[Rfam]
RNA sequence: CGCAAGCACUCGAUUGAAAAGCAGUGUUGAUAUAUAUAGAUUAUACCUAUAUAUUAUUCUGAUUAUACCUAUAGGUAUAAUCUAUAUAUAUCAACACUGCUUUUCAAUCGAGUGCUUG
Numbered sequence: 001c002g003c004a005a006g007c008a009c010u011c012g013a014u015u016g017a018a019a020a021g022c023a024g025u026g027u028u029g030a031u032a033u034a035u036a037u038a039g040a041u042u043a044u045a046c047c048u049a050u051a052u053a054u055u056a057u058u059c060u061g062a063u064u065a066u067a068c069c070u071a072u073a074g075g076u077a078u079a080a081u082c083u084a085u086a087u088a089u090a091u092c093a094a095c096a097c098u099g100c101u102u103u104u105c106a107a108u109c110g111a112g113u114g115c116u117u118g
Stems, first nucleotide, its partner, number of pairs: 006115006013108006020101010031090003
RNA: MIR397 microRNA precursor family
Organism: Paramuricea clavata